[Rfam]
RNA sequence: CAGAAAUGAUAGUCGGGAGGGUGAGAACCCGAGUCAGGGUUCGCACAGCGACGAAGCCGCGCAACGUGGUUUGCCGACGGCCCCAAAGGGGCGAAGAGCGGAGUGACGAGUAAUCCUCCCUCACCGCCA
Numbered sequence: 001c002a003g004a005a006a007u008g009a010u011a012g013u014c015g016g017g018a019g020g021g022u023g024a025g026a027a028c029c030c031g032a033g034u035c036a037g038g039g040u041u042c043g044c045a046c047a048g049c050g051a052c053g054a055a056g057c058c059g060c061g062c063a064a065c066g067u068g069g070u071u072u073g074c075c076g077a078c079g080g081c082c083c084c085a086a087a088g089g090g091g092c093g094a095a096g097a098g099c100g101g102a103g104u105g106a107c108g109a110g111u112a113a114u115c116c117u118c119c120c121u122c123a124c125c126g127c128c129a
Stems, first nucleotide, its partner, number of pairs: 015120008030093002034091002040087002043084001048058001065079003069075001
This 129-nucleotide sequence from Enterovibrio coralii belongs to the Rfam family "RtT RNA". A reference for the family is Bosl and Kersten (1991), "A novel RNA product of the tyrT operon of Escherichia coli", Nucleic Acids Res. A search with the family's covariance model found it, with a score of 49 bits. This family represents a bacterial cis-regulatory element known as RtT RNA. The exact function of RtT is unknown although it is thought that it may be involved in changing the cellular response in relation to amino acid starvation. Its family is annotated with cellular response to amino acid starvation in the Gene Ontology. The family has 57 seed sequences and 651 matches in Rfam 15.1. The base pairs follow the family's consensus structure, which is taken from published work. NCBI's taxonomy places the organism under Bacteria, Pseudomonadati, Vibrionales, Vibrionaceae, Enterovibrio.